[Rfam]
The record is an 82-nucleotide sequence from Xanthomonas oryzae, which matches "Xanthomonas sRNA sX9" in Rfam.
Pairs were carried over by alignment from the consensus structure, which was predicted with RNAalifold.
RNA sequence: AUGCUACUCGACCGCUCGUGCACGGCGGCUUGUGAGCGCCGUCCGCAUCCACCUGCCAACUGCUCGCUACGAUUCGGAAGCC
Dot-bracket structure: .(((...............)))...((((.(....).))))...........((.((.(..............).)).))..